[Rfam]
RNA sequence: AACUUAUCCAGAAAGACUGAGGGAAUAGGCCCGAUGAUGUCUUAGCAACCUGUUGCCAAAUAAGGUGCUAAAUCCUUCCCGCUUUGCGGGACAGAUAAGAA
Numbered sequence: 001a002a003c004u005u006a007u008c009c010a011g012a013a014a015g016a017c018u019g020a021g022g023g024a025a026u027a028g029g030c031c032c033g034a035u036g037a038u039g040u041c042u043u044a045g046c047a048a049c050c051u052g053u054u055g056c057c058a059a060a061u062a063a064g065g066u067g068c069u070a071a072a073u074c075c076u077u078c079c080c081g082c083u084u085u086g087c088g089g090g091a092c093a094g095a096u097a098a099g100a101a
Stems, first nucleotide, its partner, number of pairs: 003099006013043005021032003027076003044069004049065002051062004073093001078090005

The family of this 101-nucleotide RNA from Flavobacterium hercynium is "SAM riboswitch aptamer (S box leader)". A reference for the family is Grundy and Henkin (1998), "The S box regulon: a new global transcription termination control system for methionine and cysteine biosynthesis genes in gram-positive bacteria", Mol Microbiol. The match comes from Rfam's covariance-model search (80 bits). The base pairs follow the family's consensus structure, which is taken from published work. From the family's description: The SAM riboswitch is found upstream of a number of genes which code for proteins involved in methionine or cysteine biosynthesis in Gram-positive bacteria.